[Rfam]
RNA: Hepatitis C virus stem-loop SL8670
RNA sequence: AGAGUGGCGGAGUCCAGGAGGAUGCGGCGAGCCUGCGAGCCUUCACGGAGGCUAUGACCAGGUACUCUGCCCCCCCCGGGGAUCCGCCCCAA
Numbered sequence: 001a002g003a004g005u006g007g008c009g010g011a012g013u014c015c016a017g018g019a020g021g022a023u024g025c026g027g028c029g030a031g032c033c034u035g036c037g038a039g040c041c042u043u044c045a046c047g048g049a050g051g052c053u054a055u056g057a058c059c060a061g062g063u064a065c066u067c068u069g070c071c072c073c074c075c076c077c078g079g080g081g082a083u084c085c086g087c088c089c090c091a092a
Base pairs, nucleotide, nucleotide: 006087009084010083013080014079015078017076018075020073021072026071027070028069029067030066031063032062033061034060035059038053039052040051041050042049043048